[Rfam]
The record is a 374-nucleotide sequence from Candidatus Rhodoluna planktonica, which matches "transfer-messenger RNA" in Rfam. The match comes from Rfam's covariance-model search (158 bits). It is annotated as a non-coding RNA gene. The family's consensus secondary structure is taken from published work.
RNA sequence: GGGGAUGAUCGGUUUCGACAGGGUACUUUGUGCCUGGAGGAAGCGGGUCGUGAAUGUAGCGUCAACACGUAAAUGUCCGCUGCAAAAAAUAAGUGCUAAAUCAUCACGCACUGACUUUGCCCUAGCCGCUUAAUAGCGCCUAGCCCGAAGUCCGUCGGUCCAGACCUGAUUUCAAUCUGGUUUCCGGCGUCAUUUAGAAAUCUUGCUGGGUAGUUACGCCUUAGGGCUACCCGGGACUCAAACUCAGGCUGGGCUCGUCGGUUAUGUCGCUUCAAGCUAGCACCGGGGCCAAGUAGAACCUUAUUGAAGCUACACCCGUAGAAGAUCCAGAAUCAGUUCUUUGGACGGGGGUUCAAUUCCCCCCAUCUCCACAA
Number, nucleotide and partner (000 for none) at each position: 001g370002g369003g368004g367005a366006u365007g364008a000009u000010c000011g000012g000013u000014u000015u000016c000017g000018a000019c343020a342021g341022g340023g339024u000025a337026c336027u335028u000029u000030g000031u000032g000033c000034c330035u329036g328037g327038a326039g000040g000041a000042a000043g000044c318045g317046g316047g315048u314049c069050g068051u067052g066053a000054a000055u084056g083057u082058a081059g080060c079061g078062u000063c000064a000065a000066c052067a051068c050069g049070u000071a000072a000073a000074u000075g000076u000077c000078c061079g060080c059081u058082g057083c056084a055085a000086a000087a000088a000089a000090u000091a000092a000093g000094u000095g000096c000097u000098a000099a000100a000101u000102c000103a000104u000105c000106a000107c000108g000109c000110a000111c000112u000113g000114a000115c000116u000117u000118u000119g000120c000121c000122c143123u142124a141125g140126c000127c138128g137129c136130u000131u000132a000133a000134u000135a000136g129137c128138g127139c000140c125141u124142a123143g122144c000145c000146c000147g000148a000149a000150g000151u000152c000153c189154g188155u187156c186157g185158g184159u000160c180161c179162a178163g177164a000165c000166c000167u200168g000169a000170u197171u196172u000173c000174a000175a000176u000177c163178u162179g161180g160181u000182u000183u000184c158185c157186g156187g155188c154189g153190u000191c000192a000193u000194u000195u000196a171197g170198a000199a000200a167201u000202c000203u000204u000205g000206c234207u233208g232209g231210g230211u229212a228213g227214u226215u000216a000217c000218g250219c000220c248221u247222u246223a000224g000225g000226g214227c213228u212229a211230c210231c209232c208233g207234g206235g000236a000237c000238u000239c000240a000241a000242a000243c000244u000245c000246a222247g221248g220249c000250u218251g000252g290253g289254c288255u287256c286257g000258u000259c285260g284261g283262u276263u275264a000265u000266g310267u309268c000269g000270c000271u000272u303273c000274a000275a263276g262277c000278u000279a000280g000281c000282a000283c261284c260285g259286g256287g255288g254289c253290c252291a000292a000293g000294u000295a000296g000297a000298a000299c000300c000301u000302u000303a272304u000305u000306g000307a000308a000309g267310c266311u000312a000313c000314a048315c047316c046317c045318g044319u000320a000321g000322a000323a000324g000325a000326u038327c037328c036329a035330g034331a000332a000333u000334c000335a027336g026337u025338u000339c023340u022341u021342u020343g019344g000345a000346c000347g363348g362349g361350g360351g359352u000353u000354c000355a000356a000357u000358u000359c351360c350361c349362c348363c347364c007365a006366u005367c004368u003369c002370c001371a000372c000373a000374a000